[Rfam]
RNA: Small nucleolar RNA psi18S-1377
Organism: Drosophila persimilis
Nucleotides: 145
Base pairs, nucleotide, nucleotide: 002058003057004056005055006054007053010049011048016043017042018041019040021038022037091125092124093123094122095121098117099116100115101114
Number, partner (000 for none) and nucleotide at each position: 001000c002058c003057g004056u005055u006054c007053u008000u009000g010049u011048g012000u013000u014000a015000u016043u017042c018041a019040c020000u021038g022037g023000a024000c025000u026000c027000a028000c029000c030000u031000u032000a033000u034000a035000g036000u037022c038021c039000u040019g041018u042017g043016a044000u045000u046000g047000u048011c049010a050000a051000a052000c053007a054006g055005a056004a057003c058002g059000u060000a061000c062000a063000g064000u065000a066000a067000a068000c069000u070000c071000a072000a073000a074000g075000c076000a077000a078000c079000u080000a081000c082000u083000c084000a085000c086000u087000c088000c089000a090000c091125a092124a093123u094122g095121a096000a097000a098117a099116g100115u101114c102000g103000a104000c105000u106000a107000u108000a109000a110000c111000c112000a113000a114101g115100g116099c117098u118000u119000c120000a121095u122094c123093a124092u125091u126000a127000c128000u129000a130000a131000a132000u133000g134000u135000u136000u137000g138000c139000u140000a141000c142000a143000g144000a145000g